[Rfam]
RNA sequence: ACUACAAACCGGGCUAUCGCCUUUCCCGCAAGGGAGGGGAGGAAAGUCUGGACAGCAUAGGGCAAUGUACCGGUGAAUAGCCGGGUCCUUUCUCCCGAUACAAUCGGGAGGAGGGAACAGACAGUGCCACAGAAAAUUACAGCUUGCAUCCCGGCCCUGGCCGGGACUAGUUCUGACCCCCCGGGUUGGAAGGGUGAUGGUGAAAACGUGGGGUAAGAGCCCACGGCUUUGCCGGGCGACCGGCAGGGCGGGUAAACCUUGCAUGCUGAAAUGCCAUGUAUACCAGCGUUGAAGAGCGGCUCGCUCGAAUGCUCCGUUAAAAGGGCUACGUUGGGUGGGUAGGCAGAAUGAUCCGGUCAGUAAUGGCCGGACAAGAUAAAUGAUAGCCUCCCGAUCGUAUCGGGAUACAGAAUCCGGCUUACAGGUUUGUAGUUAUU
Number, nucleotide and partner (000 for none) at each position: 001a433002c432003u431004a430005c429006a428007a427008a426009c425010c424011g422012g388013g387014c386015u385016a384017u383018c382019g000020c039021c038022u037023u036024u035025c034026c033027c032028g000029c000030a000031a000032g027033g026034g025035a024036g023037g022038g021039g020040a000041g000042g000043a000044a420045a419046g418047u000048c417049u416050g415051g414052a413053c268054a267055g266056c265057a000058u000059a000060g000061g000062g000063c000064a000065a264066u263067g262068u261069a260070c084071c083072g082073g081074u080075g000076a000077a000078u000079a000080g074081c073082c072083g071084g070085g118086u116087c115088c114089u113090u112091u111092c110093u109094c108095c107096c106097g105098a104099u103100a000101c000102a000103a099104u098105c097106g096107g095108g094109a093110g092111g091112a090113g089114g088115g087116a086117a000118c085119a259120g258121a000122c000123a000124g257125u256126g253127c252128c251129a000130c000131a000132g000133a000134a000135a000136a000137u000138u000139a000140c199141a198142g195143c194144u193145u000146g000147c000148a000149u189150c188151c000152c000153g000154g000155c000156c000157c000158u000159g000160g000161c000162c000163g000164g000165g000166a000167c000168u000169a000170g000171u000172u000173c000174u000175g000176a000177c000178c000179c000180c000181c000182c000183g000184g000185g000186u000187u000188g150189g149190a000191a000192g000193g144194g143195u142196g000197a000198u141199g140200g000201u000202g000203a000204a000205a000206a000207c225208g224209u223210g222211g221212g220213g000214u000215a000216a000217g000218a000219g000220c212221c211222c210223a209224c208225g207226g000227c000228u247229u246230u245231g244232c243233c242234g241235g240236g000237c000238g000239a000240c235241c234242g233243g232244c231245a230246g229247g228248g000249c000250g000251g128252g127253u126254a000255a000256a125257c124258c120259u119260u069261g068262c067263a066264u065265g056266c055267u054268g053269a000270a000271a000272u345273g344274c343275c342276a000277u000278g000279u000280a000281u000282a336283c335284c334285a000286g332287c000288g000289u000290u000291g000292a000293a000294g000295a000296g000297c000298g000299g000300c000301u000302c000303g000304c000305u000306c000307g000308a000309a000310u000311g000312c000313u000314c000315c000316g000317u000318u000319a000320a000321a000322a000323g000324g000325g000326c000327u000328a000329c000330g000331u000332u286333g000334g284335g283336u282337g000338g000339g000340u000341a000342g275343g274344c273345a272346g000347a000348a000349u000350g000351a000352u371353c370354c369355g368356g367357u366358c365359a364360g000361u000362a000363a000364u359365g358366g357367c356368c355369g354370g353371a352372c000373a000374a000375g000376a000377u000378a000379a000380a000381u000382g018383a017384u016385a015386g014387c013388c012389u000390c000391c000392c000393g000394a000395u000396c000397g000398u000399a000400u000401c000402g000403g000404g000405a000406u000407a000408c000409a000410g000411a000412a000413u052414c051415c050416g049417g048418c046419u045420u044421a000422c011423a000424g010425g009426u008427u007428u006429g005430u004431a003432g002433u001434u000435a000436u000437u000
About this RNA:
Shown here is a 437-nucleotide sequence from Niastella populi, a member of the family "Bacterial RNase P class A". Ribonuclease P (RNase P) is a ubiquitous endoribonuclease, found in archaea, bacteria and eukarya as well as chloroplasts and mitochondria. Its best characterised activity is the generation of mature 5'-ends of tRNAs by cleaving the 5'-leader elements of precursor-tRNAs. Cellular RNase Ps are ribonucleoproteins. RNA from bacterial RNase Ps retains its catalytic activity in the absence of the protein subunit, i.e. it is a ribozyme. Isolated eukaryotic and archaeal RNase P RNA has not been shown to retain its catalytic function, but is still essential for the catalytic activity of the holoenzyme. Although the archaeal and eukaryotic holoenzyme s have a much greater protein content than the bacterial ones, the RNA cores from all the three lineages are homologous -- helices corresponding to P1, P2, P3, P4, and P10/11 are common to all cellular RNase P RNAs. Yet, there is considerable sequence variation, particularly among the eukaryotic RNAs. Identified in Yersinia as Ysr151/RnpB.